[Rfam]
RNA sequence: CAGCAUUAUGAUGUUCCAUCUUUCGGGGCUGACUUACUGAUGUGAAAACUUUACUGAAUGCUG
Dot-bracket structure: ((((((...................................................))))))
This 63-nucleotide sequence from Elysia chlorotica belongs to the Rfam family "Small nucleolar RNA SNORD2". It is annotated as a C/D-box small nucleolar RNA. The source organism's lineage runs through Eukaryota, Mollusca, Heterobranchia, Placobranchoidea and Elysia. The literature on the family includes a 2004 paper in Gene by Zhou et al., "Identification of a novel box C/D snoRNA from mouse nucleolar cDNA library".